[Rfam]
RNA sequence: UAGGUUAUAAUAACUGUACCGAAGACAGUAGGUGACGUAAGUCUUAAUUUCCUACCGAGGACGAUAUUGAAUGAAUCAAUAGUCCCUCUAUGUCAACGGUGGCAUGGGGUUUUUUUAUUAAAAA
Numbered sequence: 001u002a003g004g005u006u007a008u009a010a011u012a013a014c015u016g017u018a019c020c021g022a023a024g025a026c027a028g029u030a031g032g033u034g035a036c037g038u039a040a041g042u043c044u045u046a047a048u049u050u051c052c053u054a055c056c057g058a059g060g061a062c063g064a065u066a067u068u069g070a071a072u073g074a075a076u077c078a079a080u081a082g083u084c085c086c087u088c089u090a091u092g093u094c095a096a097c098g099g100u101g102g103c104a105u106g107g108g109g110u111u112u113u114u115u116u117a118u119u120a121a122a123a124a
Base pairs, nucleotide, nucleotide: 028055029054030053031052032051034043035042036041086109087108088107089106090105091104092103093102094101095100
Background
The family of this 124-nucleotide RNA from Vagococcus carniphilus is "Ribosomal protein L10 leader". Rfam classes the family as a cis-regulatory leader. About the family: This family is a putative r-protein leader autoregulatory structure found in B. subtilis and other low-GC Gram-positive bacteria.